RNA sequence: UAAUUUUGUCCUAAGUCAAACUUCUUCAAGUUUGACCACAUUUAUAGAAAAACUACCAAAAUCUACAACUCCAAAUCACUUCUAUCAAAUCUGUAAUUAUAUAUAUUUUCAUAGUGUACUUAAAUUAUAUUGUAGGUAUUAGUAGAUUUUUCUAUAAACUUGGUCAAACCUGAAGAAGUUUGACUUAGGACAAACCUAG
Numbered sequence: 001u002a003a004u005u006u007u008g009u010c011c012u013a014a015g016u017c018a019a020a021c022u023u024c025u026u027c028a029a030g031u032u033u034g035a036c037c038a039c040a041u042u043u044a045u046a047g048a049a050a051a052a053c054u055a056c057c058a059a060a061a062u063c064u065a066c067a068a069c070u071c072c073a074a075a076u077c078a079c080u081u082c083u084a085u086c087a088a089a090u091c092u093g094u095a096a097u098u099a100u101a102u103a104u105a106u107u108u109u110c111a112u113a114g115u116g117u118a119c120u121u122a123a124a125u126u127a128u129a130u131u132g133u134a135g136g137u138a139u140u141a142g143u144a145g146a147u148u149u150u151u152c153u154a155u156a157a158a159c160u161u162g163g164u165c166a167a168a169c170c171u172g173a174a175g176a177a178g179u180u181u182g183a184c185u186u187a188g189g190a191c192a193a194a195c196c197u198a199g
Base pairs, nucleotide, nucleotide: 005194006193007192008191009190011188012187013186014185015184016183017182018181019180020179021178022177023176024175025174026173031168032167033166034165035164045154046153047152048151049150050149051148052147054144055143056142058140059139061137062136063135064134065133066132067131073125